[Rfam]
RNA sequence: UUCGGCCACGCGACGCUUUCUUCCGUCGCCCUCUGCAUGCCGUCGCCGACGCACUUCAGCCUCAUAAAGCACAACGAACCUCGUUCGUCUCCUGCUGCGCGGC
Numbered sequence: 001u002u003c004g005g006c007c008a009c010g011c012g013a014c015g016c017u018u019u020c021u022u023c024c025g026u027c028g029c030c031c032u033c034u035g036c037a038u039g040c041c042g043u044c045g046c047c048g049a050c051g052c053a054c055u056u057c058a059g060c061c062u063c064a065u066a067a068a069g070c071a072c073a074a075c076g077a078a079c080c081u082c083g084u085u086c087g088u089c090u091c092c093u094g095c096u097g098c099g100c101g102g103c
Base pairs, nucleotide, nucleotide: 010029011028012027013026014025015024039103040102041101042100044099045098046097048095074088075087076086077085079083